[Rfam]
RNA sequence: UAGGCAGAUUAUUGUAUUCGACUGUAUUCACGAUAUGUAUUUGUGAAUAUAGUAACGUAAAUAGCGCAAUUCAUGAUCUAUUUAGCUGUCUUUAAACGGAAAGUGAAUCAAUUAACAUAAUAGCUCCU
Numbered sequence: 001u002a003g004g005c006a007g008a009u010u011a012u013u014g015u016a017u018u019c020g021a022c023u024g025u026a027u028u029c030a031c032g033a034u035a036u037g038u039a040u041u042u043g044u045g046a047a048u049a050u051a052g053u054a055a056c057g058u059a060a061a062u063a064g065c066g067c068a069a070u071u072c073a074u075g076a077u078c079u080a081u082u083u084a085g086c087u088g089u090c091u092u093u094a095a096a097c098g099g100a101a102a103g104u105g106a107a108u109c110a111a112u113u114a115a116c117a118u119a120a121u122a123g124c125u126c127c128u
Stems, first nucleotide, its partner, number of pairs: 002128003009123007017115002020113002023110002026108006034098001036096001037091001039089001
The record is a 128-nucleotide RNA sequence from Nicotiana tabacum, which matches "MIR6152 microRNA precursor family" in Rfam. NCBI's taxonomy places the organism under Eukaryota, Streptophytina, lamiids, Nicotianoideae, Nicotiana.